[Rfam]
RNA sequence: GAGCUGUUAGUUUGGAUGGCUGUGCUCUGAGGAAACACGGUGUCAUUUCAUCAGGCCAUAGCUGUCCAAAACUCGUUUCCCCACU
Numbered sequence: 001g002a003g004c005u006g007u008u009a010g011u012u013u014g015g016a017u018g019g020c021u022g023u024g025c026u027c028u029g030a031g032g033a034a035a036c037a038c039g040g041u042g043u044c045a046u047u048u049c050a051u052c053a054g055g056c057c058a059u060a061g062c063u064g065u066c067c068a069a070a071a072c073u074c075g076u077u078u079c080c081c082c083a084c085u
Stems, first nucleotide, its partner, number of pairs: 008075001010073001011070014026055005032049004
RNA: mir-77 microRNA precursor family